[Rfam]
RNA sequence: UGAGUUCUGGGUUGCGUGCCAGAAGCGCGUUUACACUGGGCAUGUAGUGAAAUCUGUAAAUGCACUUUCUGGUACGACAUACCAGGACGU
Number, nucleotide and partner (000 for none) at each position: 001u000002g000003a000004g000005u000006u000007c000008u084009g083010g082011g000012u000013u000014g000015c076016g075017u074018g073019c072020c071021a070022g069023a068024a000025g065026c000027g063028c062029g061030u060031u059032u058033a057034c056035a055036c000037u000038g000039g000040g000041c000042a000043u000044g000045u000046a000047g000048u000049g000050a000051a000052a000053u000054c000055u035056g034057u033058a032059a031060a030061u029062g028063c027064a000065c025066u000067u000068u023069c022070u021071g020072g019073u018074a017075c016076g015077a000078c000079a000080u000081a000082c010083c009084a008085g000086g000087a000088c000089g000090u000
Shown here is a 90-nucleotide sequence from Photinus pyralis, a member of the family "mir-277 microRNA precursor family".